[Rfam]
RNA sequence: GCCCUGUGGUUACUGCAAACUGGGAUGACUGUACAGUUCUGCAGUUAUGAAGAUGGGCAAAGAGUGACACUGUGAUAUUUGCAUGGAGUCUGGAAUGUUGGACCUUCAGUCUCCGUAGCCCGGUCACAGAGACAUUG
Numbered sequence: 001g002c003c004c005u006g007u008g009g010u011u012a013c014u015g016c017a018a019a020c021u022g023g024g025a026u027g028a029c030u031g032u033a034c035a036g037u038u039c040u041g042c043a044g045u046u047a048u049g050a051a052g053a054u055g056g057g058c059a060a061a062g063a064g065u066g067a068c069a070c071u072g073u074g075a076u077a078u079u080u081g082c083a084u085g086g087a088g089u090c091u092g093g094a095a096u097g098u099u100g101g102a103c104c105u106u107c108a109g110u111c112u113c114c115g116u117a118g119c120c121c122g123g124u125c126a127c128a129g130a131g132a133c134a135u136u137g
Base pairs, nucleotide, nucleotide: 001058002057003056004055007049008048010047012045013044014043015042016041017040019037020036021035022034070129072127073126074125075124076123081119082118083116084115085114086113088111090109091108092107093106094105
Description: A member of the RNA family "Small nucleolar RNA SNORA84" from Scyliorhinus torazame, 137 nucleotides long. It scores 89 bits against the family's covariance model. A reference for the family is Marker et al. (2002), "Experimental RNomics: identification of 140 candidates for small non-messenger RNAs in the plant Arabidopsis thaliana", Curr Biol. Its family is annotated with nucleolus and RNA processing in the Gene Ontology. The family has 28 seed sequences and 757 matches in Rfam 15.1. The organism belongs to Scyliorhinus, within Eukaryota. Pairs were carried over by alignment from the consensus structure, which was predicted with WAR. The family's RNA type in Rfam is H/ACA-box small nucleolar RNA.